A member of the RNA family "RybB RNA" from Candidatus Symbiopectobacterium sp. PLON1, 80 nucleotides long. The organism belongs to Symbiopectobacterium, within Bacteria. For this family Rfam cites "Identification of novel small RNAs using comparative genomics and microarrays" (Wassarman et al., Genes Dev, 2001). It scores 68 bits against the family's covariance model. Pairs were carried over by alignment from the consensus structure, which was predicted with PFOLD. From the family's description: This ncRNA was identified in a large scale screen of E. coli. The function of this short RNA is unknown. The exact 5' and 3' ends of this RNA are uncertain.

RNA sequence: GCUGCUUUUCUUUGAAAUCCCCUUAUUAAGGAACCCGCCGUUCCAGCCUUUUCAGGUUCAAGAAUGAUGGGCCUUUUCUU
Numbered sequence: 001g002c003u004g005c006u007u008u009u010c011u012u013u014g015a016a017a018u019c020c021c022c023u024u025a026u027u028a029a030g031g032a033a034c035c036c037g038c039c040g041u042u043c044c045a046g047c048c049u050u051u052u053c054a055g056g057u058u059c060a061a062g063a064a065u066g067a068u069g070g071g072c073c074u075u076u077u078c079u080u
Base pairs, nucleotide, nucleotide: 034071035070036069037068039066040065041064042063043062